[Rfam]
RNA sequence: UUGCCGGUGUGAGUCCGGUCCGGGUAGUCGUCAGGGAGCCCGGUAGCAGGCUGGCGGCUCCGUCUGGAAACGGUCGGGGUCGAAGCCCAGCGUCAAGCGUCCCUUGGGGGCGUGCAACUGUGCGGUCCGCAGCAUGA
Numbered sequence: 001u002u003g004c005c006g007g008u009g010u011g012a013g014u015c016c017g018g019u020c021c022g023g024g025u026a027g028u029c030g031u032c033a034g035g036g037a038g039c040c041c042g043g044u045a046g047c048a049g050g051c052u053g054g055c056g057g058c059u060c061c062g063u064c065u066g067g068a069a070a071c072g073g074u075c076g077g078g079g080u081c082g083a084a085g086c087c088c089a090g091c092g093u094c095a096a097g098c099g100u101c102c103c104u105u106g107g108g109g110g111c112g113u114g115c116a117a118c119u120g121u122g123c124g125g126u127c128c129g130c131a132g133c134a135u136g137a
Base pairs, nucleotide, nucleotide: 020043021042022041023040024039050091051090052089053088054087055082056081057080058079059078060077064073066071098112099111100110101109102108103107114130115129
The record is a 137-nucleotide sequence from Streptosporangium album, which matches "Group II catalytic intron D1-D4-4" in Rfam. Lineage of the source: Bacteria > Bacillati > Actinomycetota > Streptosporangiaceae > Streptosporangium. The pairing is the family consensus, mapped onto this sequence. Group II introns are found in rRNA, tRNA and mRNA of organelles in fungi, plants and protists, and also in mRNA in bacteria. Rfam links the family to the GO term Group II intron splicing.